[Rfam]
RNA sequence: CUUAGCGUGAGCGAUACACUAAAGUAAGCGAGACUGCAAAAGUCUGCACUGACGAACAGAAACUGGAUAAGAGGCAUCAUUGAGUGGAUGAGAUGGCACAGCACAUCGAAGUCCAAAGAAAACCAAAAGCUCAAAGAUGUAGAUUCAGCAGGAGUAGAUUGAAGGAUAUUUAU
Numbered sequence: 001c002u003u004a005g006c007g008u009g010a011g012c013g014a015u016a017c018a019c020u021a022a023a024g025u026a027a028g029c030g031a032g033a034c035u036g037c038a039a040a041a042g043u044c045u046g047c048a049c050u051g052a053c054g055a056a057c058a059g060a061a062a063c064u065g066g067a068u069a070a071g072a073g074g075c076a077u078c079a080u081u082g083a084g085u086g087g088a089u090g091a092g093a094u095g096g097c098a099c100a101g102c103a104c105a106u107c108g109a110a111g112u113c114c115a116a117a118g119a120a121a122a123c124c125a126a127a128a129g130c131u132c133a134a135a136g137a138u139g140u141a142g143a144u145u146c147a148g149c150a151g152g153a154g155u156a157g158a159u160u161g162a163a164g165g166a167u168a169u170u171u172a173u
Base pairs, nucleotide, nucleotide: 003014005012006011028173030171031170032169037165041160042159043158044157045156046155049151050150051149063148064147065146066145067144068143074140075139076138078136080134081133082132083131084130085129086114087113088112089111092107093106094105095104
Group II catalytic intron D1-D4-3: a 173-nucleotide sequence from Pedobacter puniceus. About the family: Group II introns are found in rRNA, tRNA and mRNA of organelles in fungi, plants and protists, and also in mRNA in bacteria. The pairing is the family consensus, mapped onto this sequence. Lineage of the source: Bacteria > Bacteroidota > Sphingobacteriia > Sphingobacteriaceae > Pedobacter. It scores 118 bits against the family's covariance model.